[Rfam]
RNA sequence: ACUGGCAAAGAUGACAUCCACUUGCCCUCACUUAGACUCAGUUCAUUGAUGAGAGCACUAGUUCUGAGCCAGU
Number, nucleotide and partner (000 for none) at each position: 001a073002c072003u071004g070005g069006c068007a000008a000009a000010g000011a000012u000013g000014a000015c000016a000017u000018c000019c000020a000021c000022u000023u000024g000025c000026c000027c000028u000029c000030a000031c000032u000033u000034a000035g000036a000037c000038u000039c000040a000041g000042u000043u000044c000045a000046u000047u000048g000049a000050u000051g000052a000053g000054a000055g000056c000057a000058c000059u000060a000061g000062u000063u000064c000065u000066g000067a000068g006069c005070c004071a003072g002073u001
Annotation:
Rfam assigns this 73-nucleotide sequence from Erinaceus europaeus to the family "Small nucleolar RNA SNORD103/SNORD85". The base pairs follow the family's consensus structure. The sequence is in the family's curated seed alignment. Its family is annotated with nucleolus and RNA processing in the Gene Ontology.